[Rfam]
RNA sequence: AUACUUACCUGGACGGGGUCGAUGGCCGAUCAAGAAGGGCUAUGGCCUAGGACAGUAACCUCCAUUGCACUUAGGAGGGGUACUGACCUAAGAUCUGCCCAAGUGGCAGAGUCUACGUCAUAAUUUGUGGUAGAGGGGGUUCGCGUUCGCGCGACCCCUG
Numbered sequence: 001a002u003a004c005u006u007a008c009c010u011g012g013a014c015g016g017g018g019u020c021g022a023u024g025g026c027c028g029a030u031c032a033a034g035a036a037g038g039g040c041u042a043u044g045g046c047c048u049a050g051g052a053c054a055g056u057a058a059c060c061u062c063c064a065u066u067g068c069a070c071u072u073a074g075g076a077g078g079g080g081u082a083c084u085g086a087c088c089u090a091a092g093a094u095c096u097g098c099c100c101a102a103g104u105g106g107c108a109g110a111g112u113c114u115a116c117g118u119c120a121u122a123a124u125u126u127g128u129g130g131u132a133g134a135g136g137g138g139g140u141u142c143g144c145g146u147u148c149g150c151g152c153g154a155c156c157c158c159u160g
Base pairs, nucleotide, nucleotide: 012119013118014117015116016048017047018046019045020044021043023042024041025040026039027038049089050088051087055083056082057081059079060078061077062075063074091114092113093112094110095109096108098106099105135159136158137157138156139155142153143152144151145150
Rfam assigns this 160-nucleotide RNA from Vitis vinifera to the family "U1 spliceosomal RNA". On this family, see Katsamba et al., J Biol Chem 2001: "Two functionally distinct steps mediate high affinity binding of U1A protein to U1 hairpin II RNA". By type it is a spliceosomal small nuclear RNA. It scores 147 bits against the family's covariance model. U1 is a small nuclear RNA (snRNA) component of the spliceosome (involved in pre-mRNA splicing). The base pairs follow the family's consensus structure, which is taken from published work. The organism belongs to Vitis, within Eukaryota.